[Rfam]
RNA sequence: AGCCUCAGUCUGGAUUGGAAUGGGCACUGUUGAUUGGAGUCCAGAAUUGGUCAGUGUGGCUACAAUUGAGACACAGGUCAUGCUUCCAUCAAUGGGGUCAAUGAGGCCUGUAACACUU
Numbered sequence: 001a002g003c004c005u006c007a008g009u010c011u012g013g014a015u016u017g018g019a020a021u022g023g024g025c026a027c028u029g030u031u032g033a034u035u036g037g038a039g040u041c042c043a044g045a046a047u048u049g050g051u052c053a054g055u056g057u058g059g060c061u062a063c064a065a066u067u068g069a070g071a072c073a074c075a076g077g078u079c080a081u082g083c084u085u086c087c088a089u090c091a092a093u094g095g096g097g098u099c100a101a102u103g104a105g106g107c108c109u110g111u112a113a114c115a116c117u118u
Stems, first nucleotide, its partner, number of pairs: 002060003006056002021043005027037001073111005087097001089095002
RNA: Small nucleolar RNA SNORA1
Organism: Octodon degus